[Rfam]
RNA sequence: GGCCUCCUGGUGCUUACCACUGGCCAAGAUCUUACACUGACUGUAUAGAAAGAGAAAGCAAAGUUAACCUAUCCUAUACAGCCCAGCCCAGGCCCUGUGCCUGGUUUGUAUUGUAAAUGGGAAGACAUGG
Numbered sequence: 001g002g003c004c005u006c007c008u009g010g011u012g013c014u015u016a017c018c019a020c021u022g023g024c025c026a027a028g029a030u031c032u033u034a035c036a037c038u039g040a041c042u043g044u045a046u047a048g049a050a051a052g053a054g055a056a057a058g059c060a061a062a063g064u065u066a067a068c069c070u071a072u073c074c075u076a077u078a079c080a081g082c083c084c085a086g087c088c089c090a091g092g093c094c095c096u097g098u099g100c101c102u103g104g105u106u107u108g109u110a111u112u113g114u115a116a117a118u119g120g121g122a123a124g125a126c127a128u129g130g
Stems, first nucleotide, its partner, number of pairs: 002059002005056001007054002020043001022041001028035001072122006084108003088104006
RNA: Small nucleolar RNA SNORA51
Organism: Castor canadensis